[Rfam]
RNA sequence: UAUUAGGUUGUUGCAAAGGGAAUUGCGGUUUUUGCCAUUACUUUUACUUUGCCAUUACUUUUAAUGGCAAAAACCGCAAUUCCCUUUGCAACAACCUAAUA
Number, nucleotide and partner (000 for none) at each position: 001u101002a100003u099004u098005a097006g096007g095008u094009u093010g092011u091012u090013g089014c088015a087016a086017a085018g084019g083020g082021a081022a080023u079024u078025g077026c076027g075028g074029u073030u072031u071032u070033u069034g068035c067036c066037a065038u064039u063040a062041c000042u000043u000044u000045u000046a000047c000048u000049u000050u000051g000052c000053c000054a000055u000056u000057a000058c000059u000060u000061u000062u040063a039064a038065u037066g036067g035068c034069a033070a032071a031072a030073a029074c028075c027076g026077c025078a024079a023080u022081u021082c020083c019084c018085u017086u016087u015088g014089c013090a012091a011092c010093a009094a008095c007096c006097u005098a004099a003100u002101a001

The family of this 101-nucleotide RNA sequence from Rhinopithecus roxellana is "mir-548 microRNA precursor family". The family's consensus secondary structure was predicted with WAR. Taxonomically the source falls in Rhinopithecus (Eukaryota, Euteleostomi, Theria, Cercopithecidae). Its family is annotated with miRNA-mediated post-transcriptional gene silencing and RISC complex in the Gene Ontology.